[Rfam]
RNA sequence: CCAGCUGUCCAUCAGCCGUAACCUAAGGGUGCAUGCAUGGUCGGUAACGACCAUGUAUGAAGCCACCCCGACAAUGUAAUCUGCUCUCGGGAGCUGCAACGCUCCCGAGAGGGGGCAUUGUUCUCUGCCAGCAUCAGGCGGAGGUGGUG
Numbered sequence: 001c002c003a004g005c006u007g008u009c010c011a012u013c014a015g016c017c018g019u020a021a022c023c024u025a026a027g028g029g030u031g032c033a034u035g036c037a038u039g040g041u042c043g044g045u046a047a048c049g050a051c052c053a054u055g056u057a058u059g060a061a062g063c064c065a066c067c068c069c070g071a072c073a074a075u076g077u078a079a080u081c082u083g084c085u086c087u088c089g090g091g092a093g094c095u096g097c098a099a100c101g102c103u104c105c106c107g108a109g110a111g112g113g114g115g116c117a118u119u120g121u122u123c124u125c126u127g128c129c130a131g132c133a134u135c136a137g138g139c140g141g142a143g144g145u146g147g148u149g
Stems, first nucleotide, its partner, number of pairs: 002018001004016004027068005032059012081096001083094004097120003105112002124142006

Source information
Shown here is a 149-nucleotide RNA from Paraburkholderia solisilvae, a member of the family "Group II catalytic intron D1-D4-7". The literature on the family includes a 2003 paper in Crit Rev Biochem Mol Biol by Lehmann and Schmidt, "Group II introns: structure and catalytic versatility of large natural ribozymes". Pairs were carried over by alignment from the consensus structure. Rfam 15.1 lists 1,296 matches to the family in 705 species. Group II introns are found in rRNA, tRNA and mRNA of organelles in fungi, plants and protists, and also in mRNA in bacteria.